Shown here is a 150-nucleotide RNA sequence from Mustela putorius, a member of the family "U4 spliceosomal RNA".
The family's RNA type in Rfam is spliceosomal small nuclear RNA.
Lineage of the source: Eukaryota > Eumetazoa > Euteleostomi > Musteloidea > Mustela putorius.
Rfam's curators write: U4 small nuclear RNA (U4 snRNA) is a component of the major U2-dependent spliceosome.
For this family Rfam cites "Structures of the human pre-catalytic spliceosome and its precursor spliceosome" (Zhan et al., Cell Res, 2018).
RNA sequence: AGCUUUGCGCAGUGGCAGUAUCGUAGCCAAUGAGGUUUAUCCGAGGCGCGAUUAUUGCUAAUUGAAAACCUCAAAUACAUAUACACACACAUAUUUUGCACAUACAUAUACACAUAAAAAUAUAUACAUGUGUCUAAAUAUAUGUGUAUA
Numbered sequence: 001a002g003c004u005u006u007g008c009g010c011a012g013u014g015g016c017a018g019u020a021u022c023g024u025a026g027c028c029a030a031u032g033a034g035g036u037u038u039a040u041c042c043g044a045g046g047c048g049c050g051a052u053u054a055u056u057g058c059u060a061a062u063u064g065a066a067a068a069c070c071u072c073a074a075a076u077a078c079a080u081a082u083a084c085a086c087a088c089a090c091a092u093a094u095u096u097u098g099c100a101c102a103u104a105c106a107u108a109u110a111c112a113c114a115u116a117a118a119a120a121u122a123u124a125u126a127c128a129u130g131u132g133u134c135u136a137a138a139u140a141u142a143u144g145u146g147u148a149u150a
Base pairs, nucleotide, nucleotide: 020052021051022050023049024048026047027046028045034042035041085149087147088146089145090144091143092142093141094140096138097137